[Rfam]
RNA sequence: GGUCCGUGAUGAGCGUUGGCAUGUAUUAUCUGAUCUCGCGGUGAUGGCAGUCAUCACGUCAGCUCUAGAAUUACUCUGAGACCCG
Numbered sequence: 001g002g003u004c005c006g007u008g009a010u011g012a013g014c015g016u017u018g019g020c021a022u023g024u025a026u027u028a029u030c031u032g033a034u035c036u037c038g039c040g041g042u043g044a045u046g047g048c049a050g051u052c053a054u055c056a057c058g059u060c061a062g063c064u065c066u067a068g069a070a071u072u073a074c075u076c077u078g079a080g081a082c083c084c085g
Base pairs, nucleotide, nucleotide: 001083002082003081004080
This 85-nucleotide sequence from Steatornis caripensis belongs to the Rfam family "Small nucleolar RNA SNORD45". A reference for the family is Kiss-Laszlo et al. (1996), "Site-specific ribose methylation of preribosomal RNA: a novel function for small nucleolar RNAs", Cell. The family's RNA type in Rfam is C/D-box small nucleolar RNA. NCBI's taxonomy places the organism under Eukaryota, Opisthokonta, Sarcopterygii, Saurischia, Steatornis.